[Rfam]
RNA sequence: AUCUAUGUUAAAGGGGAGUAGCUGCCCGAAAGGGUUGAUAAAGUCAACAUACUGGCCUUUGGCCUGGCUUUAUCGGCGUAAUGCAAGCGAGACCUUUAACACAAUGCUCUGGCAUUGUGUUAAAGGUCUUUUUUAUUUUGUAAAAAAUAAUGAC
Numbered sequence: 001a002u003c004u005a006u007g008u009u010a011a012a013g014g015g016g017a018g019u020a021g022c023u024g025c026c027c028g029a030a031a032g033g034g035u036u037g038a039u040a041a042a043g044u045c046a047a048c049a050u051a052c053u054g055g056c057c058u059u060u061g062g063c064c065u066g067g068c069u070u071u072a073u074c075g076g077c078g079u080a081a082u083g084c085a086a087g088c089g090a091g092a093c094c095u096u097u098a099a100c101a102c103a104a105u106g107c108u109c110u111g112g113c114a115u116u117g118u119g120u121u122a123a124a125g126g127u128c129u130u131u132u133u134u135a136u137u138u139u140g141u142a143a144a145a146a147a148u149a150a151u152g153a154c
Stems, first nucleotide, its partner, number of pairs: 026034002037074010054064004075154001077152003081148001
Source information:
A member of the RNA family "Manganese Mn2+ riboswitch aptamer (yybP-ykoY)" from Caloramator australicus, 154 nucleotides long. Rfam's curators write: This RNA was originally discovered in E. coli during a large scale screen and was named SraF. The family was later found to exist upstream of related families of protein genes in many bacteria, including the the yybP and ykoK genes in B. subtilis. The specific functions of these proteins are unknown, but this structured RNA element may be involved in their genetic regulation as a riboswitch. Gene Ontology term of the family: manganese ion binding. The literature on the family includes a 2001 paper in Curr Biol by Argaman et al., "Novel small RNA-encoding genes in the intergenic regions of Escherichia coli".